[Rfam]
RNA sequence: CUAUUGGCAUGACACAGGGACGUGCGACGGAGUCCCAUUAAUGCCGAUAGAUAUCUCGACUUCAGACCUCCAUCGCACCGCUUGACAUAACCCAUGUCCCGCGGCCCUAUCACGGGAGAGAACGCUGAGCGUAACAAC
Numbered sequence: 001c002u003a004u005u006g007g008c009a010u011g012a013c014a015c016a017g018g019g020a021c022g023u024g025c026g027a028c029g030g031a032g033u034c035c036c037a038u039u040a041a042u043g044c045c046g047a048u049a050g051a052u053a054u055c056u057c058g059a060c061u062u063c064a065g066a067c068c069u070c071c072a073u074c075g076c077a078c079c080g081c082u083u084g085a086c087a088u089a090a091c092c093c094a095u096g097u098c099c100c101g102c103g104g105c106c107c108u109a110u111c112a113c114g115g116g117a118g119a120g121a122a123c124g125c126u127g128a129g130c131g132u133a134a135c136a137a138c
Stems, first nucleotide, its partner, number of pairs: 001050010012039001078104004084098004
Background: The family of this 138-nucleotide RNA from Corynebacterium sp. ED61 is "atpB RNA". A search with the family's covariance model found it, with a score of 92 bits. Lineage of the source: Bacteria > Actinomycetota > Mycobacteriales > Corynebacteriaceae > Corynebacterium. By type it is a cis-regulatory element. The family's consensus secondary structure is taken from published work.